S4-Clostridia ribosomal protein leader: a 53-nucleotide sequence from Butyrivibrio sp. AE3004. On this family, see Eckert and Weinberg, BMC Microbiol 2020: "Discovery of 20 novel ribosomal leader candidates in bacteria and archaea".

[Rfam]
RNA sequence: GAAAGAUCGGAUUAAGUACUGUCCGAUUGGGCAUGUUAUACGCCCCAAUCAAA
Numbered sequence: 001g002a003a004a005g006a007u008c009g010g011a012u013u014a015a016g017u018a019c020u021g022u023c024c025g026a027u028u029g030g031g032c033a034u035g036u037u038a039u040a041c042g043c044c045c046c047a048a049u050c051a052a053a
Base pairs, nucleotide, nucleotide: 005028006027007026008025009024010023011022012021029045030044031043032042034040035039
It is annotated as a cis-regulatory leader. NCBI's taxonomy places the organism under Bacteria, Bacillati, Lachnospirales, Lachnospiraceae, Butyrivibrio.